Source information: The family of this 143-nucleotide RNA from Hucho hucho is "Small nucleolar RNA SNORA47". By type it is an H/ACA-box small nucleolar RNA. The family's consensus secondary structure was predicted with WAR. Its family is annotated with RNA processing and nucleolus in the Gene Ontology. For this family Rfam cites "RNomics: an experimental approach that identifies 201 candidates for novel, small, non-messenger RNAs in mouse" (Huttenhofer et al., EMBO J, 2001).
RNA sequence: UGGAGGAUUGAGAAGGUGUAGCAGCUUCAUACUGUGCUGUUAUAACUGGUUAAUAACCUCCUACAUUAAAAUCGGGUAGAUGCAACAAACUGGCUUAUAUGAGACGUUCAUUACAGCUAAUGUUGCGUUUGUGCACAAAACUA
Dot-bracket structure: .(((((........(((.(((((((..........)))))))..))).........)))))...................(((..((.((....................................)).)).)))........
Numbered sequence: 001u002g003g004a005g006g007a008u009u010g011a012g013a014a015g016g017u018g019u020a021g022c023a024g025c026u027u028c029a030u031a032c033u034g035u036g037c038u039g040u041u042a043u044a045a046c047u048g049g050u051u052a053a054u055a056a057c058c059u060c061c062u063a064c065a066u067u068a069a070a071a072u073c074g075g076g077u078a079g080a081u082g083c084a085a086c087a088a089a090c091u092g093g094c095u096u097a098u099a100u101g102a103g104a105c106g107u108u109c110a111u112u113a114c115a116g117c118u119a120a121u122g123u124u125g126c127g128u129u130u131g132u133g134c135a136c137a138a139a140a141c142u143a
Stems, first nucleotide, its partner, number of pairs: 002061005015047003019042007081135003086131002089128002